[Rfam]
RNA sequence: AAUAUGCCGAAGGCCUUUUCACUAUUGCUUUCGUCAGGGCAUGACGAAGCAAUAGUGAAAAGGCCUUCGGCAUAUUU
Numbered sequence: 001a002a003u004a005u006g007c008c009g010a011a012g013g014c015c016u017u018u019u020c021a022c023u024a025u026u027g028c029u030u031u032c033g034u035c036a037g038g039g040c041a042u043g044a045c046g047a048a049g050c051a052a053u054a055g056u057g058a059a060a061a062g063g064c065c066u067u068c069g070g071c072a073u074a075u076u077u
Stems, first nucleotide, its partner, number of pairs: 001077002005072006012065008022055009

The family of this 77-nucleotide sequence from Penaeus vannamei is "mir-130 microRNA precursor family". The base pairs follow the family's consensus structure, which was predicted with PFOLD. The literature on the family includes a 2002 paper in Curr Biol by Lagos-Quintana et al., "Identification of tissue-specific microRNAs from mouse". The match comes from Rfam's covariance-model search (42 bits). NCBI's taxonomy places the organism under Eukaryota, Bilateria, Malacostraca, Stomatocarida, Penaeus.